[Rfam]
RNA sequence: AGAGUGUUAUGAUGUUGGAGGCGACUCCUAGUCUAGCUCAACGCUUUCUCUGCUGAAUGCAUAUUCAGCAGAG
Numbered sequence: 001a002g003a004g005u006g007u008u009a010u011g012a013u014g015u016u017g018g019a020g021g022c023g024a025c026u027c028c029u030a031g032u033c034u035a036g037c038u039c040a041a042c043g044c045u046u047u048c049u050c051u052g053c054u055g056a057a058u059g060c061a062u063a064u065u066c067a068g069c070a071g072a073g
Base pairs, nucleotide, nucleotide: 002039003038004037005036011033012032013031017028018027019026020025048073049072050071051070052069053068054067055066056065

This 73-nucleotide RNA from Candidatus Enterococcus dunnyi belongs to the Rfam family "L17 ribosomal protein downstream element".
Lineage of the source: Bacteria > Bacillota > Lactobacillales > Enterococcaceae > Enterococcus.
The family's RNA type in Rfam is cis-regulatory element.
The family's consensus secondary structure is taken from published work.
A search with the family's covariance model found it, with a score of 60 bits.